[Rfam]
The record is a 120-nucleotide RNA sequence from Glycine max, which matches "MIR1520 microRNA precursor family" in Rfam.
RNA sequence: UUCUUAUUGGAUGAUAACUGUCAUGUGUCAUGUUCUGAUUGGAUGUGGAAUCCAUGGAAGAUGAAAUGCAUUGUUGUUAUCAAUGGUCAAUCAGAACAUGAUACUUGACACUCAUCAUCC
Numbered sequence: 001u002u003c004u005u006a007u008u009g010g011a012u013g014a015u016a017a018c019u020g021u022c023a024u025g026u027g028u029c030a031u032g033u034u035c036u037g038a039u040u041g042g043a044u045g046u047g048g049a050a051u052c053c054a055u056g057g058a059a060g061a062u063g064a065a066a067u068g069c070a071u072u073g074u075u076g077u078u079a080u081c082a083a084u085g086g087u088c089a090a091u092c093a094g095a096a097c098a099u100g101a102u103a104c105u106u107g108a109c110a111c112u113c114a115u116c117a118u119c120c
Stems, first nucleotide, its partner, number of pairs: 020109004025104002029100003033096004038091003
Lineage of the source: Eukaryota > Pentapetalae > Fabales > Phaseoleae > Glycine subgen. Soja. The family has 18 seed sequences and 1,934 matches in Rfam 15.1.